Background: c-di-AMP riboswitch aptamer (ydaO/yuaA leader): a 183-nucleotide RNA from Mycolicibacterium wolinskyi. A search with the family's covariance model found it, with a score of 69 bits. The organism belongs to Mycobacterium (subgen. Mycolicibacterium), within Bacteria. Gene Ontology terms of the family: cyclic-di-AMP binding and regulation of gene expression.
RNA sequence: GACGGGGUAACGACGAACAACAAGGAUGGAGGCGGGGGACCCAACCGGUCCACCGAUUUAUAAGGACCAGGAGCCGCUUGCGGCCCCUUGGGGUGAAGCCGUCGUCGUUUCGGCGUCGACGGCCGGGUGACCUCUCCUACCCGAACCCGACAGCUGACCUCGUGGGCGCAUACGAGAGGACCU
Dot-bracket structure: ...............................((((((....((.............................................))(((.....((((((............))))))..((((..........))))...))).........))))))....................